[Rfam]
RNA sequence: CGUUCCCUUGCUGGAGAGAGGCAGGCCCCGCCUGCCCACCGAAGGAGCAAGCCCGGGCCGGAAGGCGCGGGUGAAUCUCUCAGGUAAAGCGGACAGCAGGGCAAAU
Numbered sequence: 001c002g003u004u005c006c007c008u009u010g011c012u013g014g015a016g017a018g019a020g021g022c023a024g025g026c027c028c029c030g031c032c033u034g035c036c037c038a039c040c041g042a043a044g045g046a047g048c049a050a051g052c053c054c055g056g057g058c059c060g061g062a063a064g065g066c067g068c069g070g071g072u073g074a075a076u077c078u079c080u081c082a083g084g085u086a087a088a089g090c091g092g093a094c095a096g097c098a099g100g101g102c103a104a105a106u
Stems, first nucleotide, its partner, number of pairs: 006101008020036004038085003041081002045079003051072005

The record is a 106-nucleotide sequence from Paenacidovorax monticola, which matches "Glycine riboswitch aptamer" in Rfam. The match comes from Rfam's covariance-model search (62 bits).